[Rfam]
RNA sequence: GAGCGUUACGAUGAUGGCAGGCCCAGUUCCUGCUUAGUCUAGCUUGAGAGCACCGGGCAACCGGUUGUCUC
Numbered sequence: 001g002a003g004c005g006u007u008a009c010g011a012u013g014a015u016g017g018c019a020g021g022c023c024c025a026g027u028u029c030c031u032g033c034u035u036a037g038u039c040u041a042g043c044u045u046g047a048g049a050g051c052a053c054c055g056g057g058c059a060a061c062c063g064g065u066u067g068u069c070u071c
Base pairs, nucleotide, nucleotide: 001045002044003043004042010039011038012037016034017033018032019031020030021029046071047070048069049068052065053064054063
Overview
This 71-nucleotide RNA from Lacticaseibacillus casei belongs to the Rfam family "L17 ribosomal protein downstream element". By type it is a cis-regulatory element. Rfam's curators put it in the seed alignment.